[Rfam]
RNA sequence: GCCUUUGAGGAUGAAUAGAAAAUAACUUUCGUUCUUCUGAGAUGUCCUAUGCGGAAAAUUUGUUGGAGACCUGAACUGAAGAGGC
Dot-bracket structure: ..((((.........................................................................))))..
Shown here is an 85-nucleotide RNA from Carya illinoinensis, a member of the family "Small nucleolar RNA Z159/U59". The family's consensus secondary structure was predicted with PFOLD. Its Rfam clan is "SNORD59 clan". Rfam 15.1 lists 1,401 matches to the family in 272 species. Rfam links the family to the GO terms nucleolus and RNA processing.